Shown here is a 61-nucleotide sequence from Pelagibacterium lacus, a member of the family "terC RNA". NCBI's taxonomy places the organism under Bacteria, Pseudomonadota, Alphaproteobacteria, Hyphomicrobiales, Pelagibacterium. The family's consensus secondary structure is taken from published work.
RNA sequence: GCGCAGUCCGGGCCCCUCUGGCGCAGCGCUCUUGAUCGCUACGUGAUGUCGGAACUGUUCC
Numbered sequence: 001g002c003g004c005a006g007u008c009c010g011g012g013c014c015c016c017u018c019u020g021g022c023g024c025a026g027c028g029c030u031c032u033u034g035a036u037c038g039c040u041a042c043g044u045g046a047u048g049u050c051g052g053a054a055c056u057g058u059u060c061c
Stems, first nucleotide, its partner, number of pairs: 006055001007053005021044003025040004